RNA: Group II catalytic intron D1-D4-3
RNA sequence: GGCAGGGUGACCGACCGUGGGGAGGAAGCGUGGAGCGAAGCUGCGGGCCGAUGGACAAGAACCGGAUAUGAGGCGGUGCCGACCAGGGCGAGCGGGCAACGUUCCGCGAAGCUCUUGUGACCAAGGGGAAGCGGCGUAAAUCCGGCGGCCGUGCAGUGAAGGAAUGCGUUC
Numbered sequence: 001g002g003c004a005g006g007g008u009g010a011c012c013g014a015c016c017g018u019g020g021g022g023a024g025g026a027a028g029c030g031u032g033g034a035g036c037g038a039a040g041c042u043g044c045g046g047g048c049c050g051a052u053g054g055a056c057a058a059g060a061a062c063c064g065g066a067u068a069u070g071a072g073g074c075g076g077u078g079c080c081g082a083c084c085a086g087g088g089c090g091a092g093c094g095g096g097c098a099a100c101g102u103u104c105c106g107c108g109a110a111g112c113u114c115u116u117g118u119g120a121c122c123a124a125g126g127g128g129a130a131g132c133g134g135c136g137u138a139a140a141u142c143c144g145g146c147g148g149c150c151g152u153g154c155a156g157u158g159a160a161g162g163a164a165u166g167c168g169u170u171c
Base pairs, nucleotide, nucleotide: 001016002015005012006011028171030169031168032167036162040157041156042155043154044153045152046150047149048148049147050146062145063144064143065142066141067140073137074136075135077133078132079131083128084127086114087113088112089111092107093106094105095104